[Rfam]
RNA sequence: CACACACGGGGUUGGGCCUGAUGCCGGGAGAAAUCCGGUGCGGGCCUCCGGUGGCGAGCAAUCGCCUCUUCCCGUGGAGGUUCAACCGGAAAAGGAAAAGA
Numbered sequence: 001c002a003c004a005c006a007c008g009g010g011g012u013u014g015g016g017c018c019u020g021a022u023g024c025c026g027g028g029a030g031a032a033a034u035c036c037g038g039u040g041c042g043g044g045c046c047u048c049c050g051g052u053g054g055c056g057a058g059c060a061a062u063c064g065c066c067u068c069u070u071c072c073c074g075u076g077g078a079g080g081u082u083c084a085a086c087c088g089g090a091a092a093a094g095g096a097a098a099a100g101a
Stems, first nucleotide, its partner, number of pairs: 001079001003077001005076006014046002025037003053066005

Shown here is a 101-nucleotide sequence from Paramesorhizobium endophyticum, a member of the family "rpsB sRNA". Pairs were carried over by alignment from the consensus structure, which is taken from published work. The source organism's lineage runs through Bacteria, Pseudomonadati, Alphaproteobacteria, Hyphomicrobiales and Paramesorhizobium. Rfam classes the family as a small RNA.